Potassium channel RNA editing signal: a 114-nucleotide RNA sequence from Rhinolophus ferrumequinum.
Rfam's curators write: This family represents a group of sequences related to the human potassium channel Kv1.1 hairpin element which directs the efficient modification of an adenosine to inosine by an adenosine deaminase acting on RNA (ADAR). The ADAR modification causes an isoleucine/valine recoding event which lies in the ion-conducting pore of the potassium channel.
It scores 75 bits against the family's covariance model.
The source organism's lineage runs through Eukaryota, Metazoa, Dipnotetrapodomorpha, Tetrapoda and Rhinolophus.
Rfam links the family to the GO term adenosine to inosine editing.
Rfam classes the family as a cis-regulatory element.
RNA sequence: GUAGGCUACGGUGACAUCUACCCCAAAACGCUACUAGGGAAAAUCGUGGGAGGCCUCUGCUGUAUCGCCGGGGUUCUGGUGAUUGCCCUUCCCAUCCCAAUCAUUGUGAACAAU
Numbered sequence: 001g002u003a004g005g006c007u008a009c010g011g012u013g014a015c016a017u018c019u020a021c022c023c024c025a026a027a028a029c030g031c032u033a034c035u036a037g038g039g040a041a042a043a044u045c046g047u048g049g050g051a052g053g054c055c056u057c058u059g060c061u062g063u064a065u066c067g068c069c070g071g072g073g074u075u076c077u078g079g080u081g082a083u084u085g086c087c088c089u090u091c092c093c094a095u096c097c098c099a100a101u102c103a104u105u106g107u108g109a110a111c112a113a114u
Stems, first nucleotide, its partner, number of pairs: 001114002004111001007108005013102002020095001037077004049063001051061001